[Rfam]
The record is a 227-nucleotide part of an RNA from Chloracidobacterium thermophilum, which matches "Bacterial large subunit ribosomal RNA" in Rfam.
It is one of the family's seed sequences.
RNA sequence: UAGUGAAUGUCACGAGCAAGGUUAAGCGAUAAGCGAGCCGUAGCGAAAGCGAGUCUUAACAGGGCGUUGAGUUCGUGGCAUUCGGACGUGAAGCGGAUUGAUCUAUUCUUGGCCAGGUUGAAGCGUAGGUAAAACUACGUGGAGGACCGAACCAGUGUUGGUUGAAAACAGCUUGGAUGAGCUGAGAAUAGGGGUGAAAGGCCAAUCAAAAUCCGUGAUAGCUCGUU
Numbered sequence: 001u002a003g004u005g006a007a008u009g010u011c012a013c014g015a016g017c018a019a020g021g022u023u024a025a026g027c028g029a030u031a032a033g034c035g036a037g038c039c040g041u042a043g044c045g046a047a048a049g050c051g052a053g054u055c056u057u058a059a060c061a062g063g064g065c066g067u068u069g070a071g072u073u074c075g076u077g078g079c080a081u082u083c084g085g086a087c088g089u090g091a092a093g094c095g096g097a098u099u100g101a102u103c104u105a106u107u108c109u110u111g112g113c114c115a116g117g118u119u120g121a122a123g124c125g126u127a128g129g130u131a132a133a134a135c136u137a138c139g140u141g142g143a144g145g146a147c148c149g150a151a152c153c154a155g156u157g158u159u160g161g162u163u164g165a166a167a168a169c170a171g172c173u174u175g176g177a178u179g180a181g182c183u184g185a186g187a188a189u190a191g192g193g194g195u196g197a198a199a200g201g202c203c204a205a206u207c208a209a210a211a212u213c214c215g216u217g218a219u220a221g222c223u224c225g226u227u
Base pairs, nucleotide, nucleotide: 005083006082007081008080009079010078011077012076013075014074015073016072017071020039021038022037023036026034027033043050044049053065054064055063056062087225088224090222094215095214096213097212098211099210103191104190105189106188107187108186109185110184111183112182113181114179116148117147118146119145123140124139125138126137127136128135152176153175154174157172158171159170160169193203194202195201
NCBI's taxonomy places the organism under Bacteria, Pseudomonadati, Blastocatellia, Chloracidobacterium, Chloracidobacterium thermophilum.